[Rfam]
RNA: Small nucleolar RNA Z247
RNA sequence: UAUGUUACUGAAGAUGAUUUAAUUUCUUAUAUUCUUGCAGGUUUAGGAACUGAAUACGACCCUGUGGUUGUAAAUAUUACAGCAAGAACAGAUGAUUUAUCUCUGCCUGAAGUAUUCUCUCUUUUGCUCAAUCAUGAAA
Numbered sequence: 001u002a003u004g005u006u007a008c009u010g011a012a013g014a015u016g017a018u019u020u021a022a023u024u025u026c027u028u029a030u031a032u033u034c035u036u037g038c039a040g041g042u043u044u045a046g047g048a049a050c051u052g053a054a055u056a057c058g059a060c061c062c063u064g065u066g067g068u069u070g071u072a073a074a075u076a077u078u079a080c081a082g083c084a085a086g087a088a089c090a091g092a093u094g095a096u097u098u099a100u101c102u103c104u105g106c107c108u109g110a111a112g113u114a115u116u117c118u119c120u121c122u123u124u125u126g127c128u129c130a131a132u133c134a135u136g137a138a139a
Base pairs, nucleotide, nucleotide: 005137006136007135088108089105090104091103092102